RNA sequence: GGUAGUAGCAAAUAUUCAAAUGAGAACUUUGAAGACUGAAGUGGAGAAGGGUUCCAUGUGAACAGCAAUUGGACAUGGGUUAGCCGGUCCUAAGCGACAGCUUAACUGCGUAUACGUUAGGUUUCUUUACCUCGUUUCGCGAAAGGGAAUCGGGUUAAUAUUCCCGAGCCAGGACGUGGAUACUGUACGGUAACGUAAGUACUCCUCGACGCAGGCAGGUGCUCCGGGAAGCGUUGUCUUUGCUUUUUAACAGCCUUUUCUUUUAUACCCUGGAAUCAGUUUAGCUGGAGAUAGGGUUAGCUGGCUGGUAGAGCACCUUGGUUUCCAAGGUGUCCGGUGCGCUCCUGACUGCCCUUGAAAAGAGGAGGGAAAGUUGUUAUUUGCACCCCUGGCCGUACCAAUAACCGCAUCAGGUCUCCAAGGUUAGUAGCCUCUGGUCGA
Number, nucleotide and partner (000 for none) at each position: 001g000002g000003u000004a000005g000006u000007a000008g000009c000010a000011a000012a000013u000014a000015u033016u032017c031018a030019a029020a028021u000022g000023a000024g000025a000026a000027c000028u020029u019030u018031g017032a016033a015034g439035a438036c437037u436038g000039a000040a000041g000042u000043g419044g418045a417046g416047a000048a000049g399050g398051g000052u000053u000054c078055c077056a076057u075058g074059u073060g000061a000062a000063c071064a070065g000066c000067a000068a000069u000070u064071g063072g000073a059074c058075a057076u056077g055078g054079g000080u000081u000082a000083g000084c000085c395086g394087g393088u000089c146090c145091u000092a000093a000094g140095c139096g000097a111098c110099a000100g109101c108102u000103u000104a000105a000106c000107u000108g101109c100110g098111u097112a000113u000114a000115c000116g000117u000118u000119a132120g131121g130122u000123u000124u000125c000126u000127u000128u000129a000130c121131c120132u119133c000134g000135u000136u000137u000138c000139g095140c094141g000142a000143a000144a000145g090146g089147g000148a000149a000150u167151c166152g165153g164154g163155u000156u000157a000158a000159u000160a000161u000162u000163c154164c153165c152166g151167a150168g000169c000170c391171a390172g389173g388174a000175c000176g386177u385178g384179g000180a380181u379182a000183c000184u000185g000186u197187a196188c195189g194190g000191u000192a000193a000194c189195g188196u187197a186198a000199g000200u000201a000202c367203u366204c365205c364206u363207c362208g000209a000210c000211g352212c351213a350214g349215g000216c347217a346218g345219g344220u000221g342222c341223u000224c337225c336226g335227g247228g246229a245230a244231g243232c242233g000234u000235u000236g000237u000238c000239u000240u000241u000242g232243c231244u230245u229246u228247u227248u000249a000250a000251c307252a306253g305254c304255c303256u000257u000258u000259u000260c000261u000262u000263u000264u000265a000266u000267a297268c296269c295270c294271u293272g292273g000274a000275a000276u288277c287278a286279g285280u000281u000282u000283a000284g000285c279286u278287g277288g276289a000290g000291a000292u272293a271294g270295g269296g268297u267298u000299a000300g000301c000302u000303g255304g254305c253306u252307g251308g000309u000310a000311g000312a000313g000314c332315a331316c330317c329318u328319u327320g326321g000322u000323u000324u000325c000326c320327a319328a318329g317330g316331u315332g314333u000334c000335c226336g225337g224338u000339g000340c000341g222342c221343u000344c219345c218346u217347g216348a000349c214350u213351g212352c211353c000354c000355u000356u000357g000358a000359a000360a000361a000362g207363a206364g205365g204366a203367g202368g000369g000370a000371a000372a000373g000374u000375u000376g000377u000378u000379a181380u180381u000382u000383g000384c178385a177386c176387c000388c173389c172390u171391g170392g000393c087394c086395g085396u000397a000398c050399c049400a000401a000402u000403a000404a000405c414406c413407g000408c000409a000410u000411c000412a000413g406414g405415u000416c046417u045418c044419c043420a000421a433422g432423g431424u430425u000426a000427g000428u000429a000430g424431c423432c422433u421434c000435u000436g037437g036438u035439c034440g000441a000
RNA: Eukaryotic large subunit ribosomal RNA, nucleotides 1530 to 1970